[Rfam]
RNA: Small nucleolar RNA SNORD25
Organism: Cocos nucifera
RNA sequence: UAUGACGAUGGUGAUGAUUCUACAGACCUGUAAUGAUUAUUUGCGGGGAUGAUCGCAUAAUCAGAGAACAUCUAAGGGACUGAGUUGUC
Numbered sequence: 001u002a003u004g005a006c007g008a009u010g011g012u013g014a015u016g017a018u019u020c021u022a023c024a025g026a027c028c029u030g031u032a033a034u035g036a037u038u039a040u041u042u043g044c045g046g047g048g049a050u051g052a053u054c055g056c057a058u059a060a061u062c063a064g065a066g067a068a069c070a071u072c073u074a075a076g077g078g079a080c081u082g083a084g085u086u087g088u089c
Stems, first nucleotide, its partner, number of pairs: 002088005